A member of the RNA family "Small nucleolar RNA SNORA70" from Sapajus apella, 130 nucleotides long. Rfam describes the family as follows. snoRNA U70 seems to be exclusive to mammals and is a member of the H/ACA class of snoRNA which contain H (ANANNA) and ACA box motifs. NCBI's taxonomy places the organism under Eukaryota, Chordata, Sarcopterygii, Simiiformes, Sapajus. Rfam links the family to the GO terms nucleolus and RNA processing.

RNA sequence: UUGUAGAGAUAGGAUCUCAUUCUUUUCCUCAUGGGAGCCCAGUGUGCGAUGGCUGCAAACAGCAGCUUCCUCGGUAGUGUAUGCAGCCUGUUUCUUGUAUGGGUUGCUCUAAGGGACCUUGGAGACAGGC
Dot-bracket structure: .............((....((((..........))))....)).............................(((........((((((...........)))))).........)))............
Numbered sequence: 001u002u003g004u005a006g007a008g009a010u011a012g013g014a015u016c017u018c019a020u021u022c023u024u025u026u027c028c029u030c031a032u033g034g035g036a037g038c039c040c041a042g043u044g045u046g047c048g049a050u051g052g053c054u055g056c057a058a059a060c061a062g063c064a065g066c067u068u069c070c071u072c073g074g075u076a077g078u079g080u081a082u083g084c085a086g087c088c089u090g091u092u093u094c095u096u097g098u099a100u101g102g103g104u105u106g107c108u109c110u111a112a113g114g115g116a117c118c119u120u121g122g123a124g125a126c127a128g129g130c
Stems, first nucleotide, its partner, number of pairs: 014043002020037004073118003084106006